The family of this 85-nucleotide RNA sequence from Brassica rapa is "small nucleolar RNA snoR114". The match comes from Rfam's covariance-model search (50 bits). The organism belongs to Brassica, within Eukaryota. Rfam links the family to the GO terms nucleolus and RNA processing. A reference for the family is Chen and Wu (2009), "Mining small RNA sequencing data: a new approach to identify small nucleolar RNAs in Arabidopsis", Nucleic Acids Res. Rfam 15.1 lists 1,645 matches to the family in 183 species.

[Rfam]
RNA sequence: GAGCUGUGAAGAAAUAUGGUAUAACGAAGGUUGGGUCCUUCGCUCUCAUCUGAUUUCAAGAUGAUAUUUCCACCAUCCUGAGCUC
Numbered sequence: 001g002a003g004c005u006g007u008g009a010a011g012a013a014a015u016a017u018g019g020u021a022u023a024a025c026g027a028a029g030g031u032u033g034g035g036u037c038c039u040u041c042g043c044u045c046u047c048a049u050c051u052g053a054u055u056u057c058a059a060g061a062u063g064a065u066a067u068u069u070c071c072a073c074c075a076u077c078c079u080g081a082g083c084u085c
Base pairs, nucleotide, nucleotide: 001085002084003083004082